[Rfam]
RNA sequence: AGCACAAGUGAUGAUUAUAAGGGACUUAAUACUGAAGUAUGAUGUCACUUCUAAGCAAAAGCUGAUGUGC
Dot-bracket structure: .(((((...........................................................)))))
Numbered sequence: 001a002g003c004a005c006a007a008g009u010g011a012u013g014a015u016u017a018u019a020a021g022g023g024a025c026u027u028a029a030u031a032c033u034g035a036a037g038u039a040u041g042a043u044g045u046c047a048c049u050u051c052u053a054a055g056c057a058a059a060a061g062c063u064g065a066u067g068u069g070c
Stems, first nucleotide, its partner, number of pairs: 002070005